[Rfam]
RNA sequence: GGGGAACACCCUGUCCAACGAGUCGGUAGGACCGAUAAACUGGUCGCGGUCCGUCAGGCGCAGCCCUGGUGGACCGCCCGUAUCAGCCAGCAGCCGCUGCAACCCCAGGGAG
Numbered sequence: 001g002g003g004g005a006a007c008a009c010c011c012u013g014u015c016c017a018a019c020g021a022g023u024c025g026g027u028a029g030g031a032c033c034g035a036u037a038a039a040c041u042g043g044u045c046g047c048g049g050u051c052c053g054u055c056a057g058g059c060g061c062a063g064c065c066c067u068g069g070u071g072g073a074c075c076g077c078c079c080g081u082a083u084c085a086g087c088c089a090g091c092a093g094c095c096g097c098u099g100c101a102a103c104c105c106c107a108g109g110g111a112g
Stems, first nucleotide, its partner, number of pairs: 048075006056067001058066001088099004
RNA: Streptomyces-metK RNA
Organism: Streptantibioticus cattleyicolor